[Rfam]
RNA sequence: UAAAGGUGCACAUAGGAAAACUUAGGGUGUAUACUCGUGUCACUGAAUUAACGUUUAAGCGUGCUAUUUGUACGUCAGCCACGAGGAGAUGCCACUUGAUUGUGGCAUCUUUUUAUUUAGA
Dot-bracket structure: ......(((((.((((....))))..)))))..((((((...((((((....)))...((((((.....))))))))).))))))((((((((((......))))))))))..........
Rfam assigns this 121-nucleotide RNA to the family "DUF3800-I RNA". About the family: Actinobacteria, Firmicutes, Fusobacteria, Proteobacteria (1 example), Tenericutes (2 examples). By type it is a small RNA.